[Rfam]
RNA sequence: UUUCCGAAGAGGUAAACCCAGGGUAACCCGGGGACACAAAACUGCGGAUCCUGAAGAUUCUAGACGCUUCAGGAUAGCCGGGUCGACGAA
Number, nucleotide and partner (000 for none) at each position: 001u000002u000003u000004c000005c000006g000007a000008a000009g000010a000011g000012g037013u036014a000015a000016a000017c032018c031019c030020a000021g028022g027023g000024u000025a000026a000027c022028c021029c000030g019031g018032g017033g000034a000035c000036a013037c012038a000039a000040a000041a083042c082043u081044g000045c080046g079047g078048a075049u074050c073051c072052u071053g070054a069055a068056g067057a000058u000059u000060c000061u000062a000063g000064a000065c000066g000067c056068u055069u054070c053071a052072g051073g050074a049075u048076a000077g000078c047079c046080g045081g043082g042083u041084c000085g000086a000087c000088g000089a000090a000
This 90-nucleotide RNA from Geobacter sp. SVR belongs to the Rfam family "c-di-GMP-I riboswitch aptamer". It scores 52 bits against the family's covariance model. NCBI's taxonomy places the organism under Bacteria, Thermodesulfobacteriota, Geobacterales, Geobacteraceae, Geobacter.